[Rfam]
RNA sequence: ACCACCCUUUUCUUGGGAUUGUGCUACUGUCCAAUGAACGUUUAGUGAGGACAGUACUGCUAAUGGCUACACAACACACCCACAUCAACUAAAGCUCUGCUUUACCUUGGUGCAAUUUUGGAAAAA
Numbered sequence: 001a002c003c004a005c006c007c008u009u010u011u012c013u014u015g016g017g018a019u020u021g022u023g024c025u026a027c028u029g030u031c032c033a034a035u036g037a038a039c040g041u042u043u044a045g046u047g048a049g050g051a052c053a054g055u056a057c058u059g060c061u062a063a064u065g066g067c068u069a070c071a072c073a074a075c076a077c078a079c080c081c082a083c084a085u086c087a088a089c090u091a092a093a094g095c096u097c098u099g100c101u102u103u104a105c106c107u108u109g110g111u112g113c114a115a116u117u118u119u120g121g122a123a124a125a126a
Base pairs, nucleotide, nucleotide: 007017008016009015021060022059023058026055027054028053029052030051031050032049038046039045083112084111085110086109087108090104091103092102093101094100095099
Dot-bracket structure: ......(((.....)))...(((..(((((((.....((.....))..)))))))..)))......................(((((..((((((...))))))...)))))..............
The record is a 126-nucleotide RNA from Heterocephalus glaber, which matches "U4atac minor spliceosomal RNA" in Rfam. It scores 94 bits against the family's covariance model. The base pairs follow the family's consensus structure, which is taken from published work.